[Rfam]
Nucleotides: 065
Stems, first nucleotide, its partner, number of pairs: 001065005016052004021047003025043001031041003
Number, partner (000 for none) and nucleotide at each position: 001065c002064a003063u004062a005061u006000a007000u008000g009000u010000u011000a012000u013000g014000a015000u016052g017051g018050u019049a020000a021047g022046a023045u024000a025043c026000u027000a028000a029000a030000c031041c032040c033039c034000u035000c036000a037000c038000g039033g040032g041031g042000a043025g044000g045023a046022u047021u048000g049019u050018a051017c052016c053000u054000g055000a056000u057000a058000u059000u060000c061005a062004u063003a064002u065001g

Rfam assigns this 65-nucleotide sequence from Mytilus galloprovincialis to the family "Selenocysteine insertion sequence 1". Pairs were carried over by alignment from the consensus structure, which is taken from published work. About the family: The incorporation of selenocysteine into a protein sequence is directed by an in-frame UGA codon (usually a stop codon) within the coding region of the mRNA. Selenoprotein mRNAs contain a conserved secondary structure in the 3' UTR that is required for the distinction of UGA stop from UGA selenocysteine. By type it is a cis-regulatory element.